[Rfam]
RNA sequence: ACGGGUCUUUUUGCGGUCUGGGCUUGCUGUUCCAAAACUCACUAGUCAGGAAGCCCUUACCCCAAAAAGUAUCUG
Numbered sequence: 001a002c003g004g005g006u007c008u009u010u011u012u013g014c015g016g017u018c019u020g021g022g023c024u025u026g027c028u029g030u031u032c033c034a035a036a037a038c039u040c041a042c043u044a045g046u047c048a049g050g051a052a053g054c055c056c057u058u059a060c061c062c063c064a065a066a067a068a069g070u071a072u073c074u075g
Base pairs, nucleotide, nucleotide: 007069008068009067010066011065012064013063015061016060017059020056021055022054023053025051027049028048
Overview: Rfam assigns this 75-nucleotide RNA from Carassius auratus to the family "mir-129 microRNA precursor family". The family's consensus secondary structure was predicted with RNAalifold. The family has 56 seed sequences and 1,242 matches in Rfam 15.1. Its family is annotated with gene silencing by miRNA, miRNA-mediated post-transcriptional gene silencing and RISC complex in the Gene Ontology.